Shown here is an 84-nucleotide RNA from Corymbia citriodora, a member of the family "mir-399 microRNA precursor family".
Rfam 15.1 lists 2,396 matches to the family in 221 species.
From the family's description: mir-399 was identified in both Arabidopsis thaliana and Oryza sativa computationally and was later experimentally verified. mir-399 is thought to target mRNAs coding for a phosphatase transporter.
For this family Rfam cites "Computational Identification of Plant MicroRNAs and Their Targets, Including a Stress-Induced miRNA" (Jones-Rhoades and Bartel, Mol Cell, 2004).
The match comes from Rfam's covariance-model search (69 bits).
The family's consensus secondary structure was predicted with PFOLD.
RNA sequence: UGGUGGAUUACUGAGCAUUUACUCCUUUGGCAAUGAAUUCGCUAAAACCUCAUUGCCAAAGGAGAUUUGCUCAGCAAUUCACCG
Numbered sequence: 001u002g003g004u005g006g007a008u009u010a011c012u013g014a015g016c017a018u019u020u021a022c023u024c025c026u027u028u029g030g031c032a033a034u035g036a037a038u039u040c041g042c043u044a045a046a047a048c049c050u051c052a053u054u055g056c057c058a059a060a061g062g063a064g065a066u067u068u069g070c071u072c073a074g075c076a077a078u079u080c081a082c083c084g
Stems, first nucleotide, its partner, number of pairs: 005080005011074007022064004028058009